This 192-nucleotide RNA belongs to the Rfam family "IMES-1 RNA motif".
[Rfam]
RNA sequence: UUGAUUCCGACUAACGAUCAACUGCAGACGGGAAGUAGGGAGAAUCGAAGAGGUAGAGCCCAUAGGGUGAAAGCGUUUAUAAGAGUCGGCGAUAAAAAAGAGCUUAUAAACCCACCAAGAUUUCAAGAGAAAGAAAUCAAGGAGCUAGAGAAAAUCUCACUUUAGACCCCUAAGGAACUCGAAUUAAAAAGA
Number, nucleotide and partner (000 for none) at each position: 001u049002u048003g000004a045005u000006u000007c000008c000009g000010a000011c038012u037013a036014a000015c035016g000017a000018u000019c000020a000021a000022c000023u000024g000025c000026a000027g000028a000029c000030g000031g000032g000033a000034a000035g015036u013037a012038g011039g000040g000041a000042g000043a000044a000045u004046c000047g000048a002049a001050g000051a000052g000053g000054u000055a000056g000057a000058g000059c000060c000061c174062a000063u172064a171065g170066g169067g000068u000069g000070a000071a000072a000073g000074c000075g111076u110077u109078u108079a107080u106081a105082a104083g103084a000085g000086u000087c000088g000089g000090c000091g000092a000093u000094a000095a000096a000097a000098a000099a000100g000101a000102g000103c083104u082105u081106a080107u079108a078109a077110a076111c075112c000113c000114a000115c000116c000117a000118a000119g138120a137121u136122u135123u134124c000125a000126a000127g158128a157129g156130a155131a000132a000133g000134a123135a122136a121137u120138c119139a000140a000141g000142g000143a000144g000145c165146u164147a163148g162149a161150g160151a000152a000153a000154a000155u130156c129157u128158c127159a000160c150161u149162u148163u147164a146165g145166a000167c000168c000169c066170c065171u064172a063173a000174g061175g000176a000177a000178c000179u000180c000181g000182a000183a000184u000185u000186a000187a000188a000189a000190a000191g000192a000